[Rfam]
RNA: glmS glucosamine-6-phosphate activated ribozyme aptamer
Organism: Clostridium botulinum
RNA sequence: AAAGUUAUGAAAGCGCCAGAACUUAAGUGCUUAUAGCAGAUUAGUAUCUGAGUAAGUUCGACUAAUCAAGUUGAGAAUUUGGGGUUAUAAAGGAAAUUCAGAUUAACAUCUGAGUAAGUUCCACUGGCCAAAUUGAAAAUUUGGAGUAUAUAGAGGAAACUCAGAUUAGCAUCUGAGUAAGUUCCACUAACCAAAUUGAAAAUUUGGAGUGUCACUUAAGUUGACGAGGAUAUAGGAGUAUCGAAAUUUCGGCGGAUAUCCUAUGGGAUCUCACAGCCCUAAAAGCUAUAAUAAAAGUUAGAAGUGAUUCUGAUUACAAAAAAGCUUUAGUGAGGAC
Numbered sequence: 001a002a003a004g005u006u007a008u009g010a011a012a013g014c015g016c017c018a019g020a021a022c023u024u025a026a027g028u029g030c031u032u033a034u035a036g037c038a039g040a041u042u043a044g045u046a047u048c049u050g051a052g053u054a055a056g057u058u059c060g061a062c063u064a065a066u067c068a069a070g071u072u073g074a075g076a077a078u079u080u081g082g083g084g085u086u087a088u089a090a091a092g093g094a095a096a097u098u099c100a101g102a103u104u105a106a107c108a109u110c111u112g113a114g115u116a117a118g119u120u121c122c123a124c125u126g127g128c129c130a131a132a133u134u135g136a137a138a139a140u141u142u143g144g145a146g147u148a149u150a151u152a153g154a155g156g157a158a159a160c161u162c163a164g165a166u167u168a169g170c171a172u173c174u175g176a177g178u179a180a181g182u183u184c185c186a187c188u189a190a191c192c193a194a195a196u197u198g199a200a201a202a203u204u205u206g207g208a209g210u211g212u213c214a215c216u217u218a219a220g221u222u223g224a225c226g227a228g229g230a231u232a233u234a235g236g237a238g239u240a241u242c243g244a245a246a247u248u249u250c251g252g253c254g255g256a257u258a259u260c261c262u263a264u265g266g267g268a269u270c271u272c273a274c275a276g277c278c279c280u281a282a283a284a285g286c287u288a289u290a291a292u293a294a295a296a297g298u299u300a301g302a303a304g305u306g307a308u309u310c311u312g313a314u315u316a317c318a319a320a321a322a323a324g325c326u327u328u329a330g331u332g333a334g335g336a337c
Stems, first nucleotide, its partner, number of pairs: 020222008029213001232264005241252004265279003269275001283327005289321001297314007